[Rfam]
RNA sequence: UACUCAUCAAGAGCGGUGGAGGGAAGGGGCCCGAUGAAACCCGGCAACCUUGGAACAGGAUUCCAAACGGUGCUAAUUCCCUCCAGUUUCUGGAAGAUGAGUA
Numbered sequence: 001u002a003c004u005c006a007u008c009a010a011g012a013g014c015g016g017u018g019g020a021g022g023g024a025a026g027g028g029g030c031c032c033g034a035u036g037a038a039a040c041c042c043g044g045c046a047a048c049c050u051u052g053g054a055a056c057a058g059g060a061u062u063c064c065a066a067a068c069g070g071u072g073c074u075a076a077u078u079c080c081c082u083c084c085a086g087u088u089u090c091u092g093g094a095a096g097a098u099g100a101g102u103a
Base pairs, nucleotide, nucleotide: 001103002102003101004100005099006098007097008096013042015041016040017039021032022031023030026082027081028080029079043074044073045072046071048070049069050066051065052064053063078095083093084092085091086090
RNA: SAM riboswitch aptamer (S box leader)